[Rfam]
A member of the RNA family "c-di-AMP riboswitch aptamer (ydaO/yuaA leader)" from Arthrobacter rhombi, 172 nucleotides long. The base pairs follow the family's consensus structure.

RNA sequence: CGGGUCCGUUCGCCCAAAUGACAGGCAGGGGUGGAGAACCCAAACACCGACGGCCAGCCGCCUUGCUUCCUUGGCACGCGGCCGUCUUGGGGUGAAGUCGCAGCUUGGCCUGCGACCGGAUCUGACCGGUCCGAACCCGACAGCUAACUCCGCAGGCGCCAUGAGAGGUCUC
Numbered sequence: 001c002g003g004g005u006c007c008g009u010u011c012g013c014c015c016a017a018a019u020g021a022c023a024g025g026c027a028g029g030g031g032u033g034g035a036g037a038a039c040c041c042a043a044a045c046a047c048c049g050a051c052g053g054c055c056a057g058c059c060g061c062c063u064u065g066c067u068u069c070c071u072u073g074g075c076a077c078g079c080g081g082c083c084g085u086c087u088u089g090g091g092g093u094g095a096a097g098u099c100g101c102a103g104c105u106u107g108g109c110c111u112g113c114g115a116c117c118g119g120a121u122c123u124g125a126c127c128g129g130u131c132c133g134a135a136c137c138c139g140a141c142a143g144c145u146a147a148c149u150c151c152g153c154a155g156g157c158g159c160c161a162u163g164a165g166a167g168g169u170c171u172c
Base pairs, nucleotide, nucleotide: 001155005030006029007028031153032152033151034150035149036148041089042088090138091137092136098115099114100113101112118132119131120130121129